[Rfam]
RNA sequence: UGGCAGCUGGAUCCAGCCAGGCGGUGUAUCGCCAAACCCAGCCAAUCAAUCUACCCACCGGG
Number, nucleotide and partner (000 for none) at each position: 001u019002g018003g017004c016005a000006g042007c041008u040009g039010g038011a000012u000013c000014c000015a000016g004017c003018c002019a001020g033021g032022c031023g030024g000025u000026g000027u000028a000029u000030c023031g022032c021033c020034a000035a000036a000037c000038c010039c009040a008041g007042c006043c000044a000045a000046u000047c000048a000049a000050u000051c000052u000053a000054c000055c000056c000057a000058c000059c000060g000061g000062g000